[Rfam]
RNA sequence: CUUGGACUGGUUCGAAACCAUCCCAGUAUAAAAAACUAAGGAGAU
Numbered sequence: 001c002u003u004g005g006a007c008u009g010g011u012u013c014g015a016a017a018c019c020a021u022c023c024c025a026g027u028a029u030a031a032a033a034a035a036c037u038a039a040g041g042a043g044a045u
Base pairs, nucleotide, nucleotide: 006027007026008025009024010023016037